[Rfam]
RNA sequence: GGUAAUGACGAAUCGCCCUUUGAAUUAUAUGUAGAUGAGUCAAGUCCCUGAAUUUCAGGGAGAACCUACUUGGAGUCCUACAUUGGAAUGAGAUAUACGGGCUUUACUGAGCU
Number, nucleotide and partner (000 for none) at each position: 001g113002g112003u111004a000005a000006u000007g000008a000009c000010g000011a000012a000013u000014c000015g000016c000017c000018c000019u000020u000021u000022g000023a000024a000025u000026u000027a000028u000029a000030u000031g000032u000033a000034g000035a000036u000037g000038a000039g000040u000041c000042a000043a000044g000045u000046c060047c059048c058049u057050g056051a000052a000053u000054u000055u000056c050057a049058g048059g047060g046061a000062g000063a000064a000065c000066c000067u000068a000069c000070u000071u000072g000073g000074a000075g000076u000077c000078c000079u000080a000081c000082a000083u000084u000085g000086g000087a000088a000089u000090g000091a000092g000093a000094u000095a000096u000097a000098c000099g000100g000101g000102c000103u000104u000105u000106a000107c000108u000109g000110a000111g003112c002113u001

The record is a 113-nucleotide sequence from Sorghum bicolor, which matches "Small nucleolar RNA Z278" in Rfam. For this family Rfam cites "The high diversity of snoRNAs in plants: identification and comparative study of 120 snoRNA genes from Oryza sativa" (Chen et al., Nucleic Acids Res, 2003). About the family: snoZ278 is a C/D box small nucleolar RNA. Its methylation guide targets have not been reported. The organism belongs to Sorghum, within Eukaryota. It is annotated as a C/D-box small nucleolar RNA. Gene Ontology terms of the family: RNA processing and nucleolus.